[Rfam]
RNA: MIR394 microRNA precursor family
Nucleotides: 099
Stems, first nucleotide, its partner, number of pairs: 011089001014085006023076011
Number, partner (000 for none) and nucleotide at each position: 001000c002000u003000u004000a005000c006000a007000g008000a009000g010000u011089u012000u013000u014085u015084u016083g017082g018081c019080a020000u021000u022000c023076u024075g025074u026073c027072c028071a029070c030069c031068u032067c033066c034000a035000u036000c037000u038000g039000u040000a041000g042000a043000a044000a045000c046000u047000a048000c049000a050000a051000g052000u053000u054000g055000u056000u057000c058000u059000a060000c061000u062000u063000u064000c065000u066033g067032g068031a069030g070029g071028u072027g073026g074025g075024c076023a077000u078000a079000c080019u081018g082017c083016c084015a085014a086000c087000u088000g089011a090000g091000c092000u093000c094000u095000g096000u097000u098000g099000g